[Rfam]
Nucleotides: 125
Base pairs, nucleotide, nucleotide: 013112014111017108018107019106020105023102024101025100026099027098028097029096030095031094032093034091035090036089037088038087
Number, partner (000 for none) and nucleotide at each position: 001000g002000u003000u004000a005000c006000u007000g008000c009000u010000g011000u012000c013112u014111c015000u016000a017108a018107u019106u020105c021000g022000c023102u024101u025100g026099g027098u028097g029096c030095a031094g032093g033000u034091c035090g036089g037088g038087a039000a040000c041000g042000c043000u044000u045000c046000g047000u048000a049000u050000g051000u052000u053000c054000u055000a056000g057000u058000g059000g060000u061000u062000u063000u064000u065000g066000u067000u068000u069000g070000a071000u072000u073000u074000a075000c076000g077000g078000c079000g080000a081000a082000u083000c084000a085000a086000a087038u088037c089036c090035c091034g092000c093032c094031u095030u096029g097028c098027a099026u100025c101024a102023a103000g104000u105020g106019a107018a108017u109000c110000g111014g112013a113000g114000a115000c116000g117000g118000c119000a120000g121000u122000g123000a124000a125000a